[Rfam]
The record is a 131-nucleotide RNA sequence from Colwellia sp. PAMC 20917, which matches "Ribosomal S15 leader" in Rfam. The family's consensus secondary structure is taken from published work. The family's RNA type in Rfam is cis-regulatory leader. Rfam links the family to the GO term regulation of translation, ncRNA-mediated. Its Rfam clan is "Ribosomal Protein S15 Leader clan". It scores 68 bits against the family's covariance model.
Nucleotides: 131
Base pairs, nucleotide, nucleotide: 008025009024010023011022012021046085047084048083064082065081066080067079
Number, partner (000 for none) and nucleotide at each position: 001000c002000a003000c004000c005000u006000u007000a008025g009024c010023u011022g012021a013000a014000u015000u016000a017000g018000u019000g020000u021012u022011u023010g024009g025008c026000g027000a028000g029000g030000u031000g032000c033000g034000a035000a036000u037000u038000u039000u040000a041000a042000g043000u044000a045000c046085u047084u048083u049000c050000g051000g052000g053000u054000a055000c056000a057000u058000c059000a060000c061000a062000c063000u064082a065081a066080g067079g068000a069000u070000u071000a072000a073000u074000u075000a076000u077000g078000u079067c080066u081065u082064u083048a084047a085046a086000u087000g088000c089000u090000a091000c092000a093000g094000a095000a096000a097000a098000a099000g100000c101000u102000g103000c104000a105000a106000u107000c108000g109000u110000u111000g112000c113000a114000g115000a116000a117000u118000a119000u120000g121000c122000u123000c124000a125000a126000a127000a128000a129000g130000a131000a